RNA sequence: GCGCGUCAUCACGGGCGCCCACGGAACGGGCUGAGAUCGAGCUGGUCUGCUCGAGCACCGAUUGCACCUGUCCGGGUAAUGCCGGCGAAGGGAAAAGAAGACUCAUCAUG
Numbered sequence: 001g002c003g004c005g006u007c008a009u010c011a012c013g014g015g016c017g018c019c020c021a022c023g024g025a026a027c028g029g030g031c032u033g034a035g036a037u038c039g040a041g042c043u044g045g046u047c048u049g050c051u052c053g054a055g056c057a058c059c060g061a062u063u064g065c066a067c068c069u070g071u072c073c074g075g076g077u078a079a080u081g082c083c084g085g086c087g088a089a090g091g092g093a094a095a096a097g098a099a100g101a102c103u104c105a106u107c108a109u110g
Stems, first nucleotide, its partner, number of pairs: 006098002009095001012060003017031004038053005067091003072085004
RNA: TPP riboswitch aptamer (THI element)
Organism: Propionibacterium freudenreichii